RNA sequence: UCCAGAUAAACUUGUAUUCACCCAAGAGAGUGGAGCAAGUCACUUUACGGAAUUAUAACAAGUAACACAUUUCAGGAUUGCCAAAUGCUUACAUAUAAGUGAAAUCUUGAAAUGCCAGGAUAACCGUAUGUCCUUUAACAUAUUUUGUGUUAUAAAAAUAAUCUUGAAUAACUUUAGUUAAGUUUUCGAGUUACGAUGAG
Numbered sequence: 001u002c003c004a005g006a007u008a009a010a011c012u013u014g015u016a017u018u019c020a021c022c023c024a025a026g027a028g029a030g031u032g033g034a035g036c037a038a039g040u041c042a043c044u045u046u047a048c049g050g051a052a053u054u055a056u057a058a059c060a061a062g063u064a065a066c067a068c069a070u071u072u073c074a075g076g077a078u079u080g081c082c083a084a085a086u087g088c089u090u091a092c093a094u095a096u097a098a099g100u101g102a103a104a105u106c107u108u109g110a111a112a113u114g115c116c117a118g119g120a121u122a123a124c125c126g127u128a129u130g131u132c133c134u135u136u137a138a139c140a141u142a143u144u145u146u147g148u149g150u151u152a153u154a155a156a157a158a159u160a161a162u163c164u165u166g167a168a169u170a171a172c173u174u175u176a177g178u179u180a181a182g183u184u185u186u187c188g189a190g191u192u193a194c195g196a197u198g199a200g
Stems, first nucleotide, its partner, number of pairs: 001051003006046001008044001010040006017034005022028001068114004073109007087100002090097001117134005123197001125195004129158001136152005163190006170179001
The family of this 200-nucleotide sequence is "IS605-orfB-I RNA". The base pairs follow the family's consensus structure, which is taken from published work.